This 123-nucleotide RNA sequence from Anoxybacter fermentans belongs to the Rfam family "PyrR binding site". NCBI's taxonomy places the organism under Bacteria, Bacillati, Clostridia, Halanaerobiales, Anoxybacter. Rfam classes the family as a cis-regulatory element. The family's consensus secondary structure is taken from published work.
RNA sequence: UCACCCUUUAAAUUAGUCCUGUGAGGCUAGUAAGAGGUGAAGAAACAUAAUAGAAGAUAAGUAGUAGCUUAUCUCUAUAGAUUAGAACCUUCUUACUGGUCUACAGUAAGAAGGUUUUUUAAU
Numbered sequence: 001u002c003a004c005c006c007u008u009u010a011a012a013u014u015a016g017u018c019c020u021g022u023g024a025g026g027c028u029a030g031u032a033a034g035a036g037g038u039g040a041a042g043a044a045a046c047a048u049a050a051u052a053g054a055a056g057a058u059a060a061g062u063a064g065u066a067g068c069u070u071a072u073c074u075c076u077a078u079a080g081a082u083u084a085g086a087a088c089c090u091u092c093u094u095a096c097u098g099g100u101c102u103a104c105a106g107u108a109a110g111a112a113g114g115u116u117u118u119u120u121a122a123u
Base pairs, nucleotide, nucleotide: 004036006034007033008032013030014029015028016027017026018025048081053076055074056073057072058071059070060069061068084118085117086116087115088114089113090112091111092110093109094108095107096106097105